[Rfam]
This 99-nucleotide RNA from Clostridium amylolyticum belongs to the Rfam family "Glycine riboswitch aptamer". Gene Ontology term of the family: glycine biosynthetic process. It scores 62 bits against the family's covariance model.

RNA sequence: AUGAAACUCUCGGGAGAGAACCUUAAGUGGUGGCCGAAGGAAUAAGUAAUACCUACCAAGUAUUAUGAAUCUCUCAGGCGAAAGUACCGAGAAUGGACA
Numbered sequence: 001a002u003g004a005a006a007c008u009c010u011c012g013g014g015a016g017a018g019a020a021c022c023u024u025a026a027g028u029g030g031u032g033g034c035c036g037a038a039g040g041a042a043u044a045a046g047u048a049a050u051a052c053c054u055a056c057c058a059a060g061u062a063u064u065a066u067g068a069a070u071c072u073c074u075c076a077g078g079c080g081a082a083a084g085u086a087c088c089g090a091g092a093a094u095g096g097a098c099a
Base pairs, nucleotide, nucleotide: 006094008092009091010090011089012088013087020031021030022029033079034078035077036075037074040073041072046066047065048064049063050062051061052060